[Rfam]
RNA sequence: AUCUGUAGGAUUCAUAAUUCUCCUUGAACCGUCGGCGGGCGGUUCAUGCGAACCACUCGUACUACCCGCAUGAGGUAGACCGCCAU
Numbered sequence: 001a002u003c004u005g006u007a008g009g010a011u012u013c014a015u016a017a018u019u020c021u022c023c024u025u026g027a028a029c030c031g032u033c034g035g036c037g038g039g040c041g042g043u044u045c046a047u048g049c050g051a052a053c054c055a056c057u058c059g060u061a062c063u064a065c066c067c068g069c070a071u072g073a074g075g076u077a078g079a080c081c082g083c084c085a086u
Stems, first nucleotide, its partner, number of pairs: 023048001025046002028043005034084005062078005
A member of the RNA family "Cyanobacterial ribosomal protein S1 leader", 86 nucleotides long. Rfam describes the family as follows. cyano-S1 is a ncRNA recognized in the 5-prime region of genes encoding 30S ribosomal protein S1, it has been proposed as an cis regulation element. It is annotated as a cis-regulatory leader. On this family, see Weinberg et al., Nucleic Acids Res 2007: "Identification of 22 candidate structured RNAs in bacteria using the CMfinder comparative genomics pipeline". The base pairs follow the family's consensus structure, which is taken from published work.